[Rfam]
RNA sequence: CCCUCCGAAGUUUCCCUCAGGAUAGCUGGAGCCCCGGACGGAGUUCUAUCGGGUAAAGCCAAUGAUUAGAGGCAUCGGGGGCACAACGCCCUCGACCUAUUCUCAAACUUUAAAUAGGUAGGACGGCCCGGCUGCUUCGUUGAGCCGGGCCGCGGAAUCGAGGGCUCCAAGUGGGCCAUUUUUGGUAAGCAGAACUGGCGAUGCGGGAUGAACCGGAAGCCGGGUUACGGUGCCCAACUGCGCGCUAACCUAGAACCCACAAAGGGUGUUGGUCGAUUAAGACAGCAGGACGGUGGUCAUGGAAGUCGAAAUCCGCUAAGGAGUGUGUAACAACUCACCUGCCGAAUCAACUAGCCCCGAAAAUGGAUGGCGCUGAAGCGCGCGACCCACACCCGGCCAUCUGGGCGAGCGCCAUGCCCCGAUGAGUAGGAGGGCGCGGCGGCCGCUGCAAAACCCGGGGCGCGAGCCCGGGCGGAGCGGCCGUCGGUGCAGAU
Numbered sequence: 001c002c003c004u005c006c007g008a009a010g011u012u013u014c015c016c017u018c019a020g021g022a023u024a025g026c027u028g029g030a031g032c033c034c035c036g037g038a039c040g041g042a043g044u045u046c047u048a049u050c051g052g053g054u055a056a057a058g059c060c061a062a063u064g065a066u067u068a069g070a071g072g073c074a075u076c077g078g079g080g081g082c083a084c085a086a087c088g089c090c091c092u093c094g095a096c097c098u099a100u101u102c103u104c105a106a107a108c109u110u111u112a113a114a115u116a117g118g119u120a121g122g123a124c125g126g127c128c129c130g131g132c133u134g135c136u137u138c139g140u141u142g143a144g145c146c147g148g149g150c151c152g153c154g155g156a157a158u159c160g161a162g163g164g165c166u167c168c169a170a171g172u173g174g175g176c177c178a179u180u181u182u183u184g185g186u187a188a189g190c191a192g193a194a195c196u197g198g199c200g201a202u203g204c205g206g207g208a209u210g211a212a213c214c215g216g217a218a219g220c221c222g223g224g225u226u227a228c229g230g231u232g233c234c235c236a237a238c239u240g241c242g243c244g245c246u247a248a249c250c251u252a253g254a255a256c257c258c259a260c261a262a263a264g265g266g267u268g269u270u271g272g273u274c275g276a277u278u279a280a281g282a283c284a285g286c287a288g289g290a291c292g293g294u295g296g297u298c299a300u301g302g303a304a305g306u307c308g309a310a311a312u313c314c315g316c317u318a319a320g321g322a323g324u325g326u327g328u329a330a331c332a333a334c335u336c337a338c339c340u341g342c343c344g345a346a347u348c349a350a351c352u353a354g355c356c357c358c359g360a361a362a363a364u365g366g367a368u369g370g371c372g373c374u375g376a377a378g379c380g381c382g383c384g385a386c387c388c389a390c391a392c393c394c395g396g397c398c399a400u401c402u403g404g405g406c407g408a409g410c411g412c413c414a415u416g417c418c419c420c421g422a423u424g425a426g427u428a429g430g431a432g433g434g435c436g437c438g439g440c441g442g443c444c445g446c447u448g449c450a451a452a453a454c455c456c457g458g459g460g461c462g463c464g465a466g467c468c469c470g471g472g473c474g475g476a477g478c479g480g481c482c483g484u485c486g487g488u489g490c491a492g493a494u
Stems, first nucleotide, its partner, number of pairs: 001434006011024001013022003027169007044123007056111001057109002063105003068100001070098003075095006082088001125151009175199004180194005204215003219397005225391001229387003238384001240383001243380003264358003268355006275348003285342005291315003297309002316320001321336001325334002398424004403419004435489001437486010454472001459468003
Shown here is a 494-nucleotide part of an RNA from Eptatretus burgeri, a member of the family "Eukaryotic large subunit ribosomal RNA". Taxonomically the source falls in Eptatretus (Eukaryota, Chordata, Vertebrata, Myxiniformes). The match comes from Rfam's covariance-model search (3008 bits).